[Rfam]
RNA sequence: ACCUUAUAUAGAUGUAGUAACGCAAGACAGUUGCGCAUUUCCCUGUAAGGUGGUGUUUCAAUAGAAGUAUAAACAACAAGUCUCAUUGUGUGGCUACGAGUCGAAAUGAGAUGAGUUUAUAUGAAAUAGGUUAACCGUAAGACCUUGAGUUGAAAAACUCUGAAAUUGAACUAGGGAUUAAAUUUCUGAAAUUUCGUAUUCUCUAGUUACGGUGGU
Numbered sequence: 001a002c003c004u005u006a007u008a009u010a011g012a013u014g015u016a017g018u019a020a021c022g023c024a025a026g027a028c029a030g031u032u033g034c035g036c037a038u039u040u041c042c043c044u045g046u047a048a049g050g051u052g053g054u055g056u057u058u059c060a061a062u063a064g065a066a067g068u069a070u071a072a073a074c075a076a077c078a079a080g081u082c083u084c085a086u087u088g089u090g091u092g093g094c095u096a097c098g099a100g101u102c103g104a105a106a107u108g109a110g111a112u113g114a115g116u117u118u119a120u121a122u123g124a125a126a127u128a129g130g131u132u133a134a135c136c137g138u139a140a141g142a143c144c145u146u147g148a149g150u151u152g153a154a155a156a157a158c159u160c161u162g163a164a165a166u167u168g169a170a171c172u173a174g175g176g177a178u179u180a181a182a183u184u185u186c187u188g189a190a191a192u193u194u195c196g197u198a199u200u201c202u203c204u205a206g207u208u209a210c211g212g213u214g215g216u
Stems, first nucleotide, its partner, number of pairs: 001051008010040006017034005022028001067122008081111007092102002128145005134213006140166001147160005171206007178196001